[Rfam]
RNA sequence: GUCUCUGAUGAUGAUUUUAAAAAAAUACUUUCGUUCUUCCGAGAUGAUACAUGCGGAAACAUUUUGGAGACCUGAACUGAAGAGGC
Numbered sequence: 001g002u003c004u005c006u007g008a009u010g011a012u013g014a015u016u017u018u019a020a021a022a023a024a025a026u027a028c029u030u031u032c033g034u035u036c037u038u039c040c041g042a043g044a045u046g047a048u049a050c051a052u053g054c055g056g057a058a059a060c061a062u063u064u065u066g067g068a069g070a071c072c073u074g075a076a077c078u079g080a081a082g083a084g085g086c
Base pairs, nucleotide, nucleotide: 003084004083005082006081